Notes
The record is a 63-nucleotide sequence from Trinickia dinghuensis, which matches "Fluoride riboswitch aptamer (crcB RNA motif)" in Rfam. Taxonomically the source falls in Trinickia (Bacteria, Pseudomonadota, Burkholderiales, Burkholderiaceae).

RNA sequence: UGUGCACGGGGAGAUGGCAUACCUCCUUUAACCGCCUUUGUGGCUGAUGAUGCCUACCAUUCC
Numbered sequence: 001u002g003u004g005c006a007c008g009g010g011g012a013g014a015u016g017g018c019a020u021a022c023c024u025c026c027u028u029u030a031a032c033c034g035c036c037u038u039u040g041u042g043g044c045u046g047a048u049g050a051u052g053c054c055u056a057c058c059a060u061u062c063c
Stems, first nucleotide, its partner, number of pairs: 010026004016054005034044003

Overview
It scores 53 bits against the family's covariance model. The base pairs follow the family's consensus structure, which is taken from published work.